[Rfam]
RNA sequence: GUCCAUGUUGCAAGAAUCAUCUGUCGAGAUACACACAAGGGGCUCACGCCCACAGUUAUGGUCUUGGGGAAAGUCUCCGGCACGUUCUUUCAGGCGGCAACGUCAGAUGGAUCACCACAAAUCCAUUUCCACACAGCAACCCGUCGACACCAGCACUGGAACCUCUUAGGUCAUACAUAGUCUGUUUUUGCUAGCAUGGCGACUGUUGCGGCUGCCCCAUACCUGGGCCCUCGCAUUUAGUUGGACUGUUGGCGGCCGUCUCUGGCAGGAAAUAUGGACUGUGAGACUAUGUUGUACCAUGUGCACCGUCGACACCGUUCUGUUGGUCUUUCGGGGGACAUUGCUACCUCGGUGCAUGUCCCCUUGUUUGAGAUCACUCUUUCUUUGAAUGGGUGUAUUCUGCAAAGCGCCAUGUGGCGCUAACGAUGGAUAUGAUGAUUGUCGUCGGCACUUGCGUGCCGACGAUAACCCAAUGGAGCUCACUUGCAGCAUGGA
Number, nucleotide and partner (000 for none) at each position: 001g000002u495003c494004c493005a492006u491007g490008u489009u488010g487011c486012a000013a000014g000015a440016a439017u438018c000019a436020u435021c434022u000023g000024u067025c066026g065027a064028g063029a062030u061031a000032c000033a000034c000035a000036c000037a000038a000039g000040g051041g050042g049043c048044u000045c000046a000047c000048g043049c042050c041051c040052a000053c000054a000055g000056u000057u000058a000059u000060g000061g030062u029063c028064u027065u026066g025067g024068g000069g000070a000071a000072a480073g479074u000075c478076u477077c476078c475079g000080g000081c000082a000083c000084g000085u000086u000087c000088u000089u000090u000091c000092a000093g104094g103095c102096g101097g000098c000099a000100a000101c096102g095103u094104c093105a128106g127107a126108u125109g124110g123111a122112u121113c000114a000115c000116c000117a000118c000119a000120a000121a112122u111123c110124c109125a108126u107127u106128u105129c000130c000131a000132c000133a000134c000135a000136g000137c000138a000139a000140c000141c000142c000143g000144u000145c000146g000147a000148c000149a000150c000151c000152a000153g000154c000155a000156c000157u000158g000159g000160a000161a000162c000163c000164u000165c000166u000167u000168a000169g000170g000171u000172c000173a000174u000175a000176c000177a000178u000179a000180g000181u000182c000183u000184g000185u000186u000187u000188u000189u000190g000191c000192u000193a000194g000195c000196a000197u000198g000199g000200c000201g000202a000203c000204u000205g000206u000207u000208g000209c000210g000211g000212c000213u000214g000215c000216c000217c000218c000219a000220u000221a000222c000223c000224u000225g000226g000227g000228c000229c000230c000231u000232c000233g000234c000235a000236u000237u000238u000239a000240g000241u000242u000243g000244g000245a000246c000247u000248g000249u000250u000251g000252g000253c000254g000255g000256c000257c000258g000259u000260c000261u000262c000263u000264g000265g000266c000267a000268g000269g000270a000271a000272a000273u000274a000275u000276g000277g000278a000279c000280u000281g000282u000283g000284a000285g000286a000287c000288u000289a000290u000291g000292u000293u000294g000295u000296a000297c000298c000299a000300u000301g000302u000303g000304c000305a000306c000307c000308g000309u000310c000311g000312a000313c000314a000315c000316c000317g000318u000319u000320c000321u000322g000323u000324u000325g000326g000327u000328c000329u000330u000331u000332c000333g000334g000335g000336g000337g000338a000339c000340a000341u000342u000343g000344c000345u000346a000347c000348c000349u000350c000351g000352g000353u000354g000355c000356a000357u000358g000359u000360c000361c000362c000363c000364u000365u000366g000367u000368u000369u000370g000371a000372g411373a000374u409375c000376a000377c000378u407379c000380u405381u404382u000383c402384u000385u000386u000387g400388a399389a398390u397391g000392g000393g000394u000395g000396u000397a390398u389399u388400c387401u000402g383403c000404a381405a380406a000407g378408c000409g374410c000411c372412a000413u000414g000415u000416g000417g000418c000419g000420c000421u000422a000423a000424c000425g000426a000427u000428g000429g000430a000431u000432a000433u000434g021435a020436u019437g000438a017439u016440u015441g000442u465443c464444g463445u462446c461447g460448g459449c458450a457451c000452u000453u000454g000455c000456g000457u450458g449459c448460c447461g446462a445463c444464g443465a442466u000467a000468a000469c000470c000471c000472a000473a000474u000475g078476g077477a076478g075479c073480u072481c000482a000483c000484u000485u000486g011487c010488a009489g008490c007491a006492u005493g004494g003495a002
Source information: Shown here is a 495-nucleotide RNA sequence from Pichia membranifaciens, a member of the family "RNase MRP". Rfam classes the family as a ribozyme. Rfam describes the family as follows. RNase MRP is an enzymatically active ribonucleoprotein with two distinct roles in eukaryotes. Lineage of the source: Eukaryota > Dikarya > Pichiomycetes > Pichiales > Pichia.